[Rfam]
RNA: Group II catalytic intron D1-D4-2
Organism: Dyella sp. M7H15-1
RNA sequence: GGGAGAGGGCCUCCCGAAGUCGGCUUACAGGAGCAGGCUUCAAACCGCCCGAUGCUGCGGCGUUCAAAAGGCGCGUUAGUGAGCAAUCGGGAAAAGUCGCUGUAAAAGUGGCAGGU
Numbered sequence: 001g002g003g004a005g006a007g008g009g010c011c012u013c014c015c016g017a018a019g020u021c022g023g024c025u026u027a028c029a030g031g032a033g034c035a036g037g038c039u040u041c042a043a044a045c046c047g048c049c050c051g052a053u054g055c056u057g058c059g060g061c062g063u064u065c066a067a068a069a070g071g072c073g074c075g076u077u078a079g080u081g082a083g084c085a086a087u088c089g090g091g092a093a094a095a096g097u098c099g100c101u102g103u104a105a106a107a108g109u110g111g112c113a114g115g116u
Base pairs, nucleotide, nucleotide: 001015002014003013004012005011016041017040018039019038020037021036023034024033025032026031046115048091049090050089051088052087053086054080055079057077061073062072063071064070096112097111098110099109100108101107